[Rfam]
Nucleotides: 142
Stems, first nucleotide, its partner, number of pairs: 036104003040100003044096004049092003055086002057083003063077001065075003
Number, partner (000 for none) and nucleotide at each position: 001000c002000c003000a004000a005000a006000a007000u008000a009000a010000a011000a012000a013000c014000a015000g016000a017000u018000u019000u020000u021000a022000u023000g024000a025000a026000u027000a028000g029000a030000a031000u032000c033000a034000u035000g036104g037103u038102a039000a040100a041099u042098a043000c044096a045095u046094a047093u048000u049092g050091g051090u052000g053000g054000c055086g056085u057083u058082u059081c060000u061000u062000a063077c064000a065075a066074c067073u068000a069000a070000a071000c072000a073067a074066g075065u076000c077063g078000u079000a080000a081059g082058g083057g084000a085056a086055c087000c088000a089000g090051a091050c092049c093047a094046u095045g096044u097000a098042u099041a100040u101000a102038u103037a104036c105000c106000u107000g108000a109000c110000a111000u112000u113000c114000u115000a116000a117000a118000a119000g120000g121000a122000u123000a124000u125000u126000c127000a128000a129000a130000c131000u132000g133000a134000a135000g136000g137000c138000c139000u140000g141000u142000c

The family of this 142-nucleotide RNA from Phocaeicola vulgatus is "Bacteroidete tryptophan peptide leader RNA". The source organism's lineage runs through Bacteria, Bacteroidia, Bacteroidaceae, Phocaeicola and Phocaeicola vulgatus. It is one of the family's seed sequences. Rfam classes the family as a cis-regulatory leader. The family's consensus secondary structure is taken from published work. Its family is annotated with S-adenosylmethionine metabolic process and regulation of gene expression in the Gene Ontology.